[Rfam]
A member of the RNA family "Small nucleolar RNA SNORD30" from Salvator merianae, 72 nucleotides long. The base pairs follow the family's consensus structure. Rfam links the family to the GO terms nucleolus and RNA processing. The family is grouped with related families in Rfam's "SNORD30 clan". It scores 50 bits against the family's covariance model. On this family, see Tycowski et al., Nature 1996: "A mammalian gene with introns instead of exons generating stable RNA products".
RNA sequence: UGACAUGAUGAAUCUCACUUUUGGAAUCUCGUUCGGCUGAACGUUCCUGUUGAGAAGCGGAAUCUGAACCUC
Numbered sequence: 001u002g003a004c005a006u007g008a009u010g011a012a013u014c015u016c017a018c019u020u021u022u023g024g025a026a027u028c029u030c031g032u033u034c035g036g037c038u039g040a041a042c043g044u045u046c047c048u049g050u051u052g053a054g055a056a057g058c059g060g061a062a063u064c065u066g067a068a069c070c071u072c
Base pairs, nucleotide, nucleotide: 027055028054029053030052031051034049035048036047